[Rfam]
RNA: mir-515 microRNA precursor family
RNA sequence: UGUCAUGCUGUGGCCCUCCAGAGGGAAGCGCUUUCUGUUGUCUGAAAGAAAACAAAGCGCUCCCCUUUAGAGGUUUACGGUUUGAGG
Numbered sequence: 001u002g003u004c005a006u007g008c009u010g011u012g013g014c015c016c017u018c019c020a021g022a023g024g025g026a027a028g029c030g031c032u033u034u035c036u037g038u039u040g041u042c043u044g045a046a047a048g049a050a051a052a053c054a055a056a057g058c059g060c061u062c063c064c065c066u067u068u069a070g071a072g073g074u075u076u077a078c079g080g081u082u083u084g085a086g087g
Stems, first nucleotide, its partner, number of pairs: 001087001003085003007081007016072003020068006027061008038052002